[Rfam]
The record is a 339-nucleotide RNA sequence from Exophiala xenobiotica, which matches "Group I catalytic intron" in Rfam. About the family: Group I catalytic introns are large self-splicing ribozymes. They catalyse their own excision from mRNA, tRNA and rRNA precursors in a wide range of organisms. The core secondary structure consists of 9 paired regions (P1-P9). Its family is annotated with Group I intron splicing in the Gene Ontology. The source organism's lineage runs through Eukaryota, Opisthokonta, saccharomyceta, Chaetothyriales and Exophiala.
RNA sequence: CCAGAAAAGUUAAUGGUUAGCUUUUAAUAGCAGCCUCAAAGUGAGCUGCUAGUGGGCCCGUCUCGUUAUGUAGAGGGUGAGAGACGUGGUGACCGCGAGACUGUCAAAUUGCGGGGACCUCCUGAGAGCCCAAACUACCAAGCGGCGCACCGAAAGGGCGUCGUGGCCGGGGUAAUGACCUAGGGUAUGGUAACAACGUUUGGGAUUGGACGAUCCGCAGCCAAGUCCUACGGCCUCUUUCGAGAGGCUAUGGAUGCUGUUCAACGACUAUAUGGCAGUCGGUUUAGGCGCCAAAGCGCCUAGGCUUAAGAUAGAGUCUGGCCGCCCCGAGAGGGGUCC
Numbered sequence: 001c002c003a004g005a006a007a008a009g010u011u012a013a014u015g016g017u018u019a020g021c022u023u024u025u026a027a028u029a030g031c032a033g034c035c036u037c038a039a040a041g042u043g044a045g046c047u048g049c050u051a052g053u054g055g056g057c058c059c060g061u062c063u064c065g066u067u068a069u070g071u072a073g074a075g076g077g078u079g080a081g082a083g084a085c086g087u088g089g090u091g092a093c094c095g096c097g098a099g100a101c102u103g104u105c106a107a108a109u110u111g112c113g114g115g116g117a118c119c120u121c122c123u124g125a126g127a128g129c130c131c132a133a134a135c136u137a138c139c140a141a142g143c144g145g146c147g148c149a150c151c152g153a154a155a156g157g158g159c160g161u162c163g164u165g166g167c168c169g170g171g172g173u174a175a176u177g178a179c180c181u182a183g184g185g186u187a188u189g190g191u192a193a194c195a196a197c198g199u200u201u202g203g204g205a206u207u208g209g210a211c212g213a214u215c216c217g218c219a220g221c222c223a224a225g226u227c228c229u230a231c232g233g234c235c236u237c238u239u240u241c242g243a244g245a246g247g248c249u250a251u252g253g254a255u256g257c258u259g260u261u262c263a264a265c266g267a268c269u270a271u272a273u274g275g276c277a278g279u280c281g282g283u284u285u286a287g288g289c290g291c292c293a294a295a296g297c298g299c300c301u302a303g304g305c306u307u308a309a310g311a312u313a314g315a316g317u318c319u320g321g322c323c324g325c326c327c328c329g330a331g332a333g334g335g336g337u338c339c
Stems, first nucleotide, its partner, number of pairs: 005025009099280005105274002110219006120210003124206001220260002225255004233248005264319001266318004282305009324337005